[Rfam]
RNA sequence: CUGCUUAAAACUAAGAACGAAAAAUAUUUGCAUAGCAAUACUAGGAACCACCUCCUUAGCCGGUCCAAUCUCCCUUGGACUGGCUUUUUC
Numbered sequence: 001c002u003g004c005u006u007a008a009a010a011c012u013a014a015g016a017a018c019g020a021a022a023a024a025u026a027u028u029u030g031c032a033u034a035g036c037a038a039u040a041c042u043a044g045g046a047a048c049c050a051c052c053u054c055c056u057u058a059g060c061c062g063g064u065c066c067a068a069u070c071u072c073c074c075u076u077g078g079a080c081u082g083g084c085u086u087u088u089u090c
Stems, first nucleotide, its partner, number of pairs: 043056004058085011

The record is a 90-nucleotide RNA sequence from Serratia proteamaculans, which matches "CyaR/Rye RNA" in Rfam. The organism belongs to Serratia proteamaculans, within Bacteria. The literature on the family includes a 2016 paper in Proc Natl Acad Sci U S A by Righetti et al., "Temperature-responsive in vitro RNA structurome of Yersinia pseudotuberculosis". The family's RNA type in Rfam is small RNA. Rfam's curators put it in the seed alignment. Rfam's curators write: This sRNA was originally identified in a large scale screen of E. coli. The family's consensus secondary structure was predicted with PFOLD.